[Rfam]
This 73-nucleotide sequence from Callithrix jacchus belongs to the Rfam family "Small nucleolar RNA SNORD45". NCBI's taxonomy places the organism under Eukaryota, Chordata, Teleostomi, Platyrrhini, Callithrix. By type it is a C/D-box small nucleolar RNA. Gene Ontology terms of the family: RNA processing and nucleolus. The family has 11 seed sequences and 1,629 matches in Rfam 15.1.

RNA sequence: GGUCAAUGAUGUAAUGGCAUGUUAUUAGCUGAAUCCAAAGUCGGUAAGAGUUCUAAAAUUACACUGAGGUUGG
Numbered sequence: 001g002g003u004c005a006a007u008g009a010u011g012u013a014a015u016g017g018c019a020u021g022u023u024a025u026u027a028g029c030u031g032a033a034u035c036c037a038a039a040g041u042c043g044g045u046a047a048g049a050g051u052u053c054u055a056a057a058a059u060u061a062c063a064c065u066g067a068g069g070u071u072g073g
Base pairs, nucleotide, nucleotide: 001071002070003069004068